[Rfam]
This 79-nucleotide sequence from Gadus morhua belongs to the Rfam family "mir-19 microRNA precursor family". The family's consensus secondary structure was predicted with RNAalifold. A search with the family's covariance model found it, with a score of 67 bits.
RNA sequence: UACUCUGCUCAGUUUUGCUGGUUUGCAUUCCGCUGGAGAUUGCGUUGGUGUGCAAAUCCAUGCAAAACUGAGCAGGUUG
Numbered sequence: 001u002a003c004u005c006u007g008c009u010c011a012g013u014u015u016u017g018c019u020g021g022u023u024u025g026c027a028u029u030c031c032g033c034u035g036g037a038g039a040u041u042g043c044g045u046u047g048g049u050g051u052g053c054a055a056a057u058c059c060a061u062g063c064a065a066a067a068c069u070g071a072g073c074a075g076g077u078u079g
Base pairs, nucleotide, nucleotide: 004076005075006074007073008072009071010070011069012068013067014066015065016064017063018062020059021058022056023055024054025053026052027051028050033047